[Rfam]
RNA sequence: AAUAUGUGAUGAAAAAAUGUUUCGGUCCCAAUUGAUGUCCACUGAUAACAUACAUUUUUCUGAUGUU
Numbered sequence: 001a002a003u004a005u006g007u008g009a010u011g012a013a014a015a016a017a018u019g020u021u022u023c024g025g026u027c028c029c030a031a032u033u034g035a036u037g038u039c040c041a042c043u044g045a046u047a048a049c050a051u052a053c054a055u056u057u058u059u060c061u062g063a064u065g066u067u
Stems, first nucleotide, its partner, number of pairs: 001067004
Shown here is a 67-nucleotide RNA sequence from Jaculus jaculus, a member of the family "Small nucleolar RNA SNORD73".
On this family, see Rebane et al., Gene 1998: "A novel snoRNA (U73) is encoded within the introns of the human and mouse ribosomal protein S3a genes".
The base pairs follow the family's consensus structure, which was predicted with PFOLD.
The organism belongs to Jaculus, within Eukaryota.
A search with the family's covariance model found it, with a score of 79 bits.